RNA sequence: AAGAUCCUGCUGUUUCUACCAUUAGUUUUGAAUGUUUAUUGUAAAGAUACUUUUCAACUCUAAUGGGAGAGACAGCAGGAUUC
Numbered sequence: 001a002a003g004a005u006c007c008u009g010c011u012g013u014u015u016c017u018a019c020c021a022u023u024a025g026u027u028u029u030g031a032a033u034g035u036u037u038a039u040u041g042u043a044a045a046g047a048u049a050c051u052u053u054u055c056a057a058c059u060c061u062a063a064u065g066g067g068a069g070a071g072a073c074a075g076c077a078g079g080a081u082u083c
Stems, first nucleotide, its partner, number of pairs: 003082015019066007028057005037049004